[Rfam]
RNA sequence: ACUGGAAGCUGCUGGGACCGUCUGGGACCAGACGUGGGCAAAAGAAAUAUGUUUUGUCCACCAUUGCAGUCUUCCCAGAGCAAAGUGGAGGUCUCUGUCUGCUUUAGGUGAGCCAACUAAACCGGAUCGUUCCCCUCCAUACAUG
Numbered sequence: 001a002c003u004g005g006a007a008g009c010u011g012c013u014g015g016g017a018c019c020g021u022c023u024g025g026g027a028c029c030a031g032a033c034g035u036g037g038g039c040a041a042a043a044g045a046a047a048u049a050u051g052u053u054u055u056g057u058c059c060a061c062c063a064u065u066g067c068a069g070u071c072u073u074c075c076c077a078g079a080g081c082a083a084a085g086u087g088g089a090g091g092u093c094u095c096u097g098u099c100u101g102c103u104u105u106a107g108g109u110g111a112g113c114c115a116a117c118u119a120a121a122c123c124g125g126a127u128c129g130u131u132c133c134c135c136u137c138c139a140u141a142c143a144u145g
Stems, first nucleotide, its partner, number of pairs: 004075003008070005034061006044053002087138005095129001097127003101123001103121005